RNA sequence: AAAAAGAGCUUCUGCGUGAGUGACACAUGUAAGGCAACUCCACUGCUCUGAGUGCAGAACCAACAUCAAGAGAUUUCAGAAGCAUAUUUUUUUUGGUACCUGGACAGCUGGUGAUCAUUGGUCCUGGUGUCCUA
Numbered sequence: 001a002a003a004a005a006g007a008g009c010u011u012c013u014g015c016g017u018g019a020g021u022g023a024c025a026c027a028u029g030u031a032a033g034g035c036a037a038c039u040c041c042a043c044u045g046c047u048c049u050g051a052g053u054g055c056a057g058a059a060c061c062a063a064c065a066u067c068a069a070g071a072g073a074u075u076u077c078a079g080a081a082g083c084a085u086a087u088u089u090u091u092u093u094u095g096g097u098a099c100c101u102g103g104a105c106a107g108c109u110g111g112u113g114a115u116c117a118u119u120g121g122u123c124c125u126g127g128u129g130u131c132c133u134a
Stems, first nucleotide, its partner, number of pairs: 008083005013025002015022002026054003030050002033047004057076003061072001102132004107128005113123004

The family of this 134-nucleotide sequence from Dipodomys ordii is "U11 spliceosomal RNA". The source organism's lineage runs through Eukaryota, Tetrapoda, Theria, Dipodomyinae and Dipodomys. By type it is a spliceosomal small nuclear RNA. The family's consensus secondary structure is taken from published work.